[Rfam]
RNA sequence: UUCCGGGUGACCGGAAGUCUGAAAGAAGCGGGACUACAAGAGUCAGUACGGACGAACAGAAACUACAUAAGAGGCAUAGCUUUGUGGGUGAGUAACCACAUCUUUGCGAAGCCCGUAGCCAAUAAACAUUGCUAUGUAGAUGUAGCCGCGAUAGACUCAAGGAUAAACGA
Numbered sequence: 001u002u003c004c005g006g007g008u009g010a011c012c013g014g015a016a017g018u019c020u021g022a023a024a025g026a027a028g029c030g031g032g033a034c035u036a037c038a039a040g041a042g043u044c045a046g047u048a049c050g051g052a053c054g055a056a057c058a059g060a061a062a063c064u065a066c067a068u069a070a071g072a073g074g075c076a077u078a079g080c081u082u083u084g085u086g087g088g089u090g091a092g093u094a095a096c097c098a099c100a101u102c103u104u105u106g107c108g109a110a111g112c113c114c115g116u117a118g119c120c121a122a123u124a125a126a127c128a129u130u131g132c133u134a135u136g137u138a139g140a141u142g143u144a145g146c147c148g149c150g151a152u153a154g155a156c157u158c159a160a161g162g163a164u165a166a167a168c169g170a
Stems, first nucleotide, its partner, number of pairs: 001016006029169002037162001041157004046152001047150001049148003063145006074137003078133003084129002086114004092107004